This 68-nucleotide sequence from Callithrix jacchus belongs to the Rfam family "Selenocysteine insertion sequence 1".
RNA sequence: GACGCUUCAUGACGGGAAGGAGUGAAAUGCCUCGUGGACGCCUGGUCCUUCCCCGAUGCUCUCGUGGC
Numbered sequence: 001g002a003c004g005c006u007u008c009a010u011g012a013c014g015g016g017a018a019g020g021a022g023u024g025a026a027a028u029g030c031c032u033c034g035u036g037g038a039c040g041c042c043u044g045g046u047c048c049u050u051c052c053c054c055g056a057u058g059c060u061c062u063c064g065u066g067g068c
Stems, first nucleotide, its partner, number of pairs: 001068001003066003014053008023044001029039001031037001
Description:
For this family Rfam cites "A survey of metazoan selenocysteine insertion sequences" (Lambert et al., Biochimie, 2002). The organism belongs to Callithrix, within Eukaryota.